[Rfam]
RNA sequence: CUCUGGUCCUCUCGCAACAAUAGUUCGUGAACUCGGUCAGGUCCGGAAGGAAGCAGCCGCAGCGAAUGACUUGUGUGCCGGGAUGUGGCUGGGGUCC
Numbered sequence: 001c002u003c004u005g006g007u008c009c010u011c012u013c014g015c016a017a018c019a020a021u022a023g024u025u026c027g028u029g030a031a032c033u034c035g036g037u038c039a040g041g042u043c044c045g046g047a048a049g050g051a052a053g054c055a056g057c058c059g060c061a062g063c064g065a066a067u068g069a070c071u072u073g074u075g076u077g078c079c080g081g082g083a084u085g086u087g088g089c090u091g092g093g094g095u096c097c
Stems, first nucleotide, its partner, number of pairs: 004091005010083005015075001017074004023067006034059004042051003
This 97-nucleotide sequence from Vibrio vulnificus belongs to the Rfam family "Bacterial small signal recognition particle RNA".
By type it is a non-coding RNA gene.
The base pairs follow the family's consensus structure, which is taken from published work.
Its Rfam clan is "SRP clan".
It is one of the family's seed sequences.
The organism belongs to Vibrio vulnificus, within Bacteria.